RNA: mir-8364 microRNA precursor family
Organism: Pristionchus pacificus
RNA sequence: UCUUCAUUCCUCGUGCUCUCUCGCCGAUCAGAACGACGAGAGAUCACGCGGAAUGAAGAGA
Numbered sequence: 001u002c003u004u005c006a007u008u009c010c011u012c013g014u015g016c017u018c019u020c021u022c023g024c025c026g027a028u029c030a031g032a033a034c035g036a037c038g039a040g041a042g043a044u045c046a047c048g049c050g051g052a053a054u055g056a057a058g059a060g061a
Base pairs, nucleotide, nucleotide: 001059002058003057004056005055006054007053010050012048013047014046015045017043019041020040021039022038